[Rfam]
RNA sequence: GGAGAAUUGAGGGGAGCGGACUUUAGUACGAGAGGACCGAGUCGGACGAUCCGCUCGUGUCCCGGCUGUGGCGCCAGCUGCAACGCCGGGUAGCGAUGAUCGGUGGCGAUAACCGCUGAAAGCAUCUAAGUGGGAAGCGCCCCCCAAGAUGAAUUCUCCCUGGAGCCUUGAGCUCCCUGAAGGGCCGGAGGAGACUACUCCGUCGAUAGGCAGCACGUGGAAGCGUUGUAAGACGUUCCGAGCGCAGCUGUCCUAAUCGCCCGUGCG
Numbered sequence: 001g002g003a004g005a006a007u008u009g010a011g012g013g014g015a016g017c018g019g020a021c022u023u024u025a026g027u028a029c030g031a032g033a034g035g036a037c038c039g040a041g042u043c044g045g046a047c048g049a050u051c052c053g054c055u056c057g058u059g060u061c062c063c064g065g066c067u068g069u070g071g072c073g074c075c076a077g078c079u080g081c082a083a084c085g086c087c088g089g090g091u092a093g094c095g096a097u098g099a100u101c102g103g104u105g106g107c108g109a110u111a112a113c114c115g116c117u118g119a120a121a122g123c124a125u126c127u128a129a130g131u132g133g134g135a136a137g138c139g140c141c142c143c144c145c146a147a148g149a150u151g152a153a154u155u156c157u158c159c160c161u162g163g164a165g166c167c168u169u170g171a172g173c174u175c176c177c178u179g180a181a182g183g184g185c186c187g188g189a190g191g192a193g194a195c196u197a198c199u200c201c202g203u204c205g206a207u208a209g210g211c212a213g214c215a216c217g218u219g220g221a222a223g224c225g226u227u228g229u230a231a232g233a234c235g236u237u238c239c240g241a242g243c244g245c246a247g248c249u250g251u252c253c254u255a256a257u258c259g260c261c262c263g264u265g266c267g
Stems, first nucleotide, its partner, number of pairs: 001159008011145004017045001019043005047102005055096003062089005067082006106140003113133005162177002179264001182262004186202005207255003210251005216244002220239001223236005
This 267-nucleotide part of an RNA from Gemmatimonas aurantiaca belongs to the Rfam family "Bacterial large subunit ribosomal RNA". Clan: LSU clan. Lineage of the source: Bacteria > Pseudomonadati > Gemmatimonadia > Gemmatimonadales > Gemmatimonas aurantiaca.